[Rfam]
RNA: Bacterial RNase P class A
Organism: Caulobacter sp. K31
RNA sequence: CCAGAUGGUCGGGCGGCCGCGGUCUUCGCAAGAAGAUCGAGGAAAGUCCGGGCUCCACGGUGACAAGGCGGCGGGUAACGCCCGCCGGGAGCGAUCCCAGGGAUAGCGCCACAGAAAGCAAACCUCCUCCCUUCGGGGCGGGAAGGGUGAAAGGGUGGGGUAAGAGCCCACCGCGGACCUGGCAACAGGGACGGCAUGGCAAGCCCCGCCUGGAGCAAGACCGAAUAGGGACCCCGCGCCGGCCUCGCGUCGGAUAGGCCGUCACUGGCUGAGAGGGUCCGGGUAGGUCGCGAGAACCGUCCAGCGAUGGACGGUCCAGAGGAAUGGCCGUCUCGCGGUCGUCUUUCCUUCGGGAGGGGCGGACGUCAGACAGAACCCGGCUUACAGACCAUCUGGUCCA
Numbered sequence: 001c002c003a004g005a006u007g008g009u010c011g012g013g014c015g016g017c018c019g020c021g022g023u024c025u026u027c028g029c030a031a032g033a034a035g036a037u038c039g040a041g042g043a044a045a046g047u048c049c050g051g052g053c054u055c056c057a058c059g060g061u062g063a064c065a066a067g068g069c070g071g072c073g074g075g076u077a078a079c080g081c082c083c084g085c086c087g088g089g090a091g092c093g094a095u096c097c098c099a100g101g102g103a104u105a106g107c108g109c110c111a112c113a114g115a116a117a118g119c120a121a122a123c124c125u126c127c128u129c130c131c132u133u134c135g136g137g138g139c140g141g142g143a144a145g146g147g148u149g150a151a152a153g154g155g156u157g158g159g160g161u162a163a164g165a166g167c168c169c170a171c172c173g174c175g176g177a178c179c180u181g182g183c184a185a186c187a188g189g190g191a192c193g194g195c196a197u198g199g200c201a202a203g204c205c206c207c208g209c210c211u212g213g214a215g216c217a218a219g220a221c222c223g224a225a226u227a228g229g230g231a232c233c234c235c236g237c238g239c240c241g242g243c244c245u246c247g248c249g250u251c252g253g254a255u256a257g258g259c260c261g262u263c264a265c266u267g268g269c270u271g272a273g274a275g276g277g278u279c280c281g282g283g284u285a286g287g288u289c290g291c292g293a294g295a296a297c298c299g300u301c302c303a304g305c306g307a308u309g310g311a312c313g314g315u316c317c318a319g320a321g322g323a324a325u326g327g328c329c330g331u332c333u334c335g336c337g338g339u340c341g342u343c344u345u346u347c348c349u350u351c352g353g354g355a356g357g358g359g360c361g362g363a364c365g366u367c368a369g370a371c372a373g374a375a376c377c378c379g380g381c382u383u384a385c386a387g388a389c390c391a392u393c394u395g396g397u398c399c400a
Base pairs, nucleotide, nucleotide: 001396002395003394004393005392006391007390008389009388010387011385012332013331014330015329016328017327018326020039021038022037023036024035025034026033027032044383045382046381048380049379050378051377052376053215054214055213056212066211067210068209069208070207071085072084073083074082075081086100087098088097089096090095101206102205106204107203108200109199110198123146124145125142126141127140129138130137131136154172155171156170157169158168159167173195174193175192178189179188180187181186219289220288221287222286229280230279231278232277233276234275257270258269259268260267296315297314298313299312300311301310302309303308